The family of this 54-nucleotide RNA from Salmo salar is "UnaL2 LINE 3' element". The base pairs follow the family's consensus structure, which is taken from published work. The match comes from Rfam's covariance-model search (70 bits). By type it is a cis-regulatory element. NCBI's taxonomy places the organism under Eukaryota, Chordata, Teleostei, Clupeocephala, Salmo.
RNA sequence: UUGUUUUAUUACUGUAAGUCGCUCUGGAUAAGAGCGUCUGCUAAAUGACUAAAA
Numbered sequence: 001u002u003g004u005u006u007u008a009u010u011a012c013u014g015u016a017a018g019u020c021g022c023u024c025u026g027g028a029u030a031a032g033a034g035c036g037u038c039u040g041c042u043a044a045a046u047g048a049c050u051a052a053a054a
Stems, first nucleotide, its partner, number of pairs: 013043001014041003020036006